The record is a 368-nucleotide RNA from Streptococcus parasanguinis, which matches "Bacterial RNase P class B" in Rfam. Rfam's curators put it in the seed alignment.

RNA sequence: AUUUUUGGAUAAUCGCGUGAGAGAUUCUUCCCUCAUGAGGAAAGUCCAUGCUAGCACAGGCUGUGAUGCCUGUAGUGUUUGUGCUAGGUGAAUUCAUAAGCCUAGGGACUUGAUGUUCAAGUUACGGCGGGUGAAAGAGCUAAGUCUUUGGAUAGGUUCUAGUAACUCUGAAAGUGCCACAGUGACGUAGUUUUUAGGGAAACCUAAAAAGUGGAACGCGGUAAACCCCUCAAGCUAGCAACCCAAACUUUGGUCGGGGCAUGGAAUACGUGGAAACGAACAUAGUAUUCUGACUGGAAACAGUAGACAGAUGAUUAUCGAAGGAAAUGGUACCUAGUCAUUUCUGGAACAAAACAUGGCUUAUAGAA
Numbered sequence: 001a002u003u004u005u006u007g008g009a010u011a012a013u014c015g016c017g018u019g020a021g022a023g024a025u026u027c028u029u030c031c032c033u034c035a036u037g038a039g040g041a042a043a044g045u046c047c048a049u050g051c052u053a054g055c056a057c058a059g060g061c062u063g064u065g066a067u068g069c070c071u072g073u074a075g076u077g078u079u080u081g082u083g084c085u086a087g088g089u090g091a092a093u094u095c096a097u098a099a100g101c102c103u104a105g106g107g108a109c110u111u112g113a114u115g116u117u118c119a120a121g122u123u124a125c126g127g128c129g130g131g132u133g134a135a136a137g138a139g140c141u142a143a144g145u146c147u148u149u150g151g152a153u154a155g156g157u158u159c160u161a162g163u164a165a166c167u168c169u170g171a172a173a174g175u176g177c178c179a180c181a182g183u184g185a186c187g188u189a190g191u192u193u194u195u196a197g198g199g200a201a202a203c204c205u206a207a208a209a210a211g212u213g214g215a216a217c218g219c220g221g222u223a224a225a226c227c228c229c230u231c232a233a234g235c236u237a238g239c240a241a242c243c244c245a246a247a248c249u250u251u252g253g254u255c256g257g258g259g260c261a262u263g264g265a266a267u268a269c270g271u272g273g274a275a276a277c278g279a280a281c282a283u284a285g286u287a288u289u290c291u292g293a294c295u296g297g298a299a300a301c302a303g304u305a306g307a308c309a310g311a312u313g314a315u316u317a318u319c320g321a322a323g324g325a326a327a328u329g330g331u332a333c334c335u336a337g338u339c340a341u342u343u344c345u346g347g348a349a350c351a352a353a354a355c356a357u358g359g360c361u362u363a364u365a366g367a368a
Stems, first nucleotide, its partner, number of pairs: 004368003007364001008319007016037006042362003046359005051238005056073006079233003083229001084105006106125001107123006126228002129168004137159004144153003174226002176222003191210008242258003262292007293304004323345009
The organism belongs to Streptococcus, within Bacteria. The family's consensus secondary structure is taken from published work. Ribonuclease P (RNase P) is a ubiquitous endoribonuclease, found in archaea, bacteria and eukarya as well as chloroplasts and mitochondria. Its best characterised activity is the generation of mature 5'-ends of tRNAs by cleaving the 5'-leader elements of precursor-tRNAs. Cellular RNase Ps are ribonucleoproteins. RNA from bacterial RNase Ps retains its catalytic activity in the absence of the protein subunit, i.e. it is a ribozyme.